[Rfam]
RNA sequence: ACAGGCGAGUGCCCUGUGGCCUCUGCCCGGCACGGACCCUGACGUACUUCCCCAACGCCAGGUGCCGUGCUCGGUCAGAGACCACAGGGCAUUGGCUGCCCGCC
Numbered sequence: 001a002c003a004g005g006c007g008a009g010u011g012c013c014c015u016g017u018g019g020c021c022u023c024u025g026c027c028c029g030g031c032a033c034g035g036a037c038c039c040u041g042a043c044g045u046a047c048u049u050c051c052c053c054a055a056c057g058c059c060a061g062g063u064g065c066c067g068u069g070c071u072c073g074g075u076c077a078g079a080g081a082c083c084a085c086a087g088g089g090c091a092u093u094g095g096c097u098g099c100c101c102g103c104c
Base pairs, nucleotide, nucleotide: 010091011090012089013088014087015086016085018083019082021080022079023078024077025076027074028073029072030071031069032068033067034066035065038062039061040060041059043057044056045055
Rfam assigns this 104-nucleotide RNA from Nocardia vermiculata to the family "mraW RNA". The organism belongs to Nocardia, within Bacteria. The match comes from Rfam's covariance-model search (70 bits).